RNA sequence: AUGGAGGAUGCCGAAAAUCCAUAAGAGAGUAGGUG
Numbered sequence: 001a002u003g004g005a006g007g008a009u010g011c012c013g014a015a016a017a018u019c020c021a022u023a024a025g026a027g028a029g030u031a032g033g034u035g
Base pairs, nucleotide, nucleotide: 002021003020004019005018010034011033012032
DUF805b RNA: a 35-nucleotide RNA sequence. The family is grouped with related families in Rfam's "DUF805 clan". The base pairs follow the family's consensus structure, which is taken from published work.